[Rfam]
RNA: tRNA
Organism: Cytospora schulzeri
RNA sequence: UCUUUCGUAGUAUAGUGGUCAGUAUACAAGCUUGUCAAGAUCCUCUUCGGAGGCUUACAACUCGCUUGGGACCCGGGUUCAAUUCCCGGCGAGAGAG
Numbered sequence: 001u002c003u004u005u006c007g008u009a010g011u012a013u014a015g016u017g018g019u020c021a022g023u024a025u026a027c028a029a030g031c032u033u034g035u036c037a038a039g040a041u042c043c044u045c046u047u048c049g050g051a052g053g054c055u056u057a058c059a060a061c062u063c064g065c066u067u068g069g070g071a072c073c074c075g076g077g078u079u080c081a082a083u084u085c086c087c088g089g090c091g092a093g094a095g096a097g
Base pairs, nucleotide, nucleotide: 001096002095003094004093005092006091007090010025011024012023013022027068028067029066030065031064073089074088075087076086077085